[Rfam]
RNA sequence: CGGUGAGGUAGAGGCGCAGGCAACAUGAGUAAACUAUCUGAGGAUGACAACAAUGAUGAUAGCAAAAGGGUUGUUUGCCGAAGCAAUAUAAGUGUCAAACUUAUAUUCGCUGGGGUGUCUUUGAAUAAGAGACGCACUGUCAUACAUAUUGUUGUAUGGAGGACUACUGAUCGA
Numbered sequence: 001c002g003g004u005g006a007g008g009u010a011g012a013g014g015c016g017c018a019g020g021c022a023a024c025a026u027g028a029g030u031a032a033a034c035u036a037u038c039u040g041a042g043g044a045u046g047a048c049a050a051c052a053a054u055g056a057u058g059a060u061a062g063c064a065a066a067a068g069g070g071u072u073g074u075u076u077g078c079c080g081a082a083g084c085a086a087u088a089u090a091a092g093u094g095u096c097a098a099a100c101u102u103a104u105a106u107u108c109g110c111u112g113g114g115g116u117g118u119c120u121u122u123g124a125a126u127a128a129g130a131g132a133c134g135c136a137c138u139g140u141c142a143u144a145c146a147u148a149u150u151g152u153u154g155u156a157u158g159g160a161g162g163a164c165u166a167c168u169g170a171u172c173g174a
Stems, first nucleotide, its partner, number of pairs: 007168005016078009034062005082111003086106008112138002115135008140159007
This 174-nucleotide RNA sequence from Cerasibacillus quisquiliarum belongs to the Rfam family "Lysine riboswitch aptamer".
Lineage of the source: Bacteria > Bacillati > Bacilli > Caryophanales > Cerasibacillus.
The base pairs follow the family's consensus structure, which is taken from published work.
Rfam describes the family as follows. Riboswitches are metabolite binding domains within certain messenger RNAs that serve as precision sensors for their corresponding targets. Allosteric rearrangement of mRNA structure is mediated by ligand binding, and this results in modulation of gene expression.